[Rfam]
RNA sequence: GGUGAUAAACGGACAUCGUAAUAAGCCAUCCGGACCCGGGGGCGGUACCCGGCGCCUCCACCCAAAACCAUCCGCGCGGUGGUUUUCGGCGGGGGCGAAAUAGGUUCGACGGGGGUGUAAAAGGUGCUCUUUUGCCCGGCAUGAUACCGCCGUUAUCGGGUCAAACUUAUAGUUGCCAAUGACAACUAUGCUCCGGUGGCCGUCGCCGCGUAA
Number, nucleotide and partner (000 for none) at each position: 001g136002g135003u134004g133005a132006u000007a000008a000009a000010c000011g000012g000013a000014c126015a125016u124017c123018g000019u000020a000021a000022u000023a000024a000025g000026c115027c114028a000029u000030c112031c111032g110033g000034a000035c000036c052037c051038g050039g049040g048041g000042g000043c000044g000045g000046u000047a000048c040049c039050c038051g037052g036053c097054g096055c095056c094057u093058c092059c091060a000061c000062c000063c000064a000065a000066a000067a000068c000069c000070a000071u000072c000073c000074g000075c000076g000077c000078g000079g000080u000081g000082g000083u000084u000085u000086u000087c000088g000089g000090c000091g059092g058093g057094g056095g055096c054097g053098a000099a000100a000101u000102a000103g000104g000105u000106u000107c000108g000109a000110c032111g031112g030113g000114g027115g026116u000117g000118u000119a000120a000121a000122a000123g017124g016125u015126g014127c000128u000129c000130u000131u000132u005133u004134g003135c002136c001137c152138g151139g150140c149141a000142u000143g000144a000145u000146a000147c000148c000149g140150c139151c138152g137153u000154u000155a000156u000157c000158g000159g000160g000161u000162c000163a000164a000165a000166c000167u000168u000169a000170u000171a000172g000173u000174u000175g000176c000177c000178a000179a000180u000181g000182a000183c000184a000185a000186c000187u000188a000189u000190g000191c000192u000193c000194c000195g000196g000197u000198g000199g000200c000201c000202g000203u000204c000205g000206c000207c000208g000209c000210g000211u000212a000213a000